[Rfam]
RNA: U12 minor spliceosomal RNA
RNA sequence: CUGGCUUAAACUCAAUGAGUAAGGAAACUAACGCUCUACCUGACAAGUAGGGCUACCUAUUGGGUCUAGUGACGCAUGGGUUUCUAAUUUUGACGGAGGUGGAAUGGCCGUCAGUGCAGGAACUAGCUAGCUCACUACUUUUGAGUUGGCCGGUGACUACAUGGGGGCCGGUCCCCGC
Dot-bracket structure: ....((((...........)))).........(((((((.......))))))).((((((...............)))))).................((((...(((((.(..((.((..(.......(((((.......))))).......)..)).)).....).))))).))))